[Rfam]
RNA: c-di-GMP-I riboswitch aptamer
Organism: Propionigenium maris
RNA sequence: UUCUGAAAAAGGCAAAGCAGGGGAAACUCUGUGACGCAAAGCUUAAGGGUCUAAGUCCUGUUUGGAUAUGGCAGCCAGCUACCAAA
Numbered sequence: 001u002u003c004u005g006a007a008a009a010a011g012g013c014a015a016a017g018c019a020g021g022g023g024a025a026a027c028u029c030u031g032u033g034a035c036g037c038a039a040a041g042c043u044u045a046a047g048g049g050u051c052u053a054a055g056u057c058c059u060g061u062u063u064g065g066a067u068a069u070g071g072c073a074g075c076c077a078g079c080u081a082c083c084a085a086a
Stems, first nucleotide, its partner, number of pairs: 012037002017032006040080004047076002049072003056066003